[Rfam]
RNA sequence: GGCGAUAAACGCCGUGUGGAAUAAGCGUUACGGACCCGGGGGCGGUACCCGGCGCCUCCACCAUAAACCCUUUUGGUACAGUCGCUUACGGGCGCCUGUGCGGGGCUUCAUGGGGGCGAAACAGGAUCGACGUGCGCGGUAAAGACGCGGUUUUUGCUCGGUAUGGUACCCGCCGUUAUCGGGCCAAACCUAGAGAUGCCAACGACAACGUUGCAUCCGAUCUCCGUAUGGCUGCCUAA
Dot-bracket structure: (((((........((((........(((.(((...(((((.......)))))(((((((....................................................)))))))............))))))........)))).....)))))((((.........))))................................................................
Numbered sequence: 001g002g003c004g005a006u007a008a009a010c011g012c013c014g015u016g017u018g019g020a021a022u023a024a025g026c027g028u029u030a031c032g033g034a035c036c037c038g039g040g041g042g043c044g045g046u047a048c049c050c051g052g053c054g055c056c057u058c059c060a061c062c063a064u065a066a067a068c069c070c071u072u073u074u075g076g077u078a079c080a081g082u083c084g085c086u087u088a089c090g091g092g093c094g095c096c097u098g099u100g101c102g103g104g105g106c107u108u109c110a111u112g113g114g115g116g117c118g119a120a121a122c123a124g125g126a127u128c129g130a131c132g133u134g135c136g137c138g139g140u141a142a143a144g145a146c147g148c149g150g151u152u153u154u155u156g157c158u159c160g161g162u163a164u165g166g167u168a169c170c171c172g173c174c175g176u177u178a179u180c181g182g183g184c185c186a187a188a189c190c191u192a193g194a195g196a197u198g199c200c201a202a203c204g205a206c207a208a209c210g211u212u213g214c215a216u217c218c219g220a221u222c223u224c225c226g227u228a229u230g231g232c233u234g235c236c237u238a239a
Stems, first nucleotide, its partner, number of pairs: 001158005014148004026136003030133003036052005053118007159175004

Source information
permuted transfer-messenger RNA: a 239-nucleotide sequence from Dongia mobilis. Rfam describes the family as follows. Bacterial tmRNA, also known as 10Sa RNA or SsrA, is named for its dual tRNA and mRNA-like properties. Its role is to liberate the mRNA from a stalled ribosome. To accomplish this part of the tmRNA is used as a reading frame that ends in a translation stop signal. The broken mRNA is replaced in the ribosome by the tmRNA and translation of the tmRNA leads to addition of a proteolysis tag to the incomplete protein enabling recognition by a protease. Recently a number of permuted tmRNA genes have been found encoded in two parts. tmRNAs have been identified in eubacteria and some chloroplasts but are absent from archaeal and eukaryote nuclear genomes. The source organism's lineage runs through Bacteria, Pseudomonadati, Pseudomonadota, Alphaproteobacteria and Dongia. It is annotated as a non-coding RNA gene. Its family is annotated with RNA catabolic process in the Gene Ontology.